[Rfam]
RNA sequence: AGGUCUCCUGCUUCAACAAUGUUUGAAUGGAACCC
Number, nucleotide and partner (000 for none) at each position: 001a000002g034003g033004u032005c000006u031007c030008c029009u000010g028011c000012u027013u026014c025015a024016a023017c021018a000019a000020u000021g017022u000023u016024u015025g014026a013027a012028u010029g008030g007031a006032a004033c003034c002035c000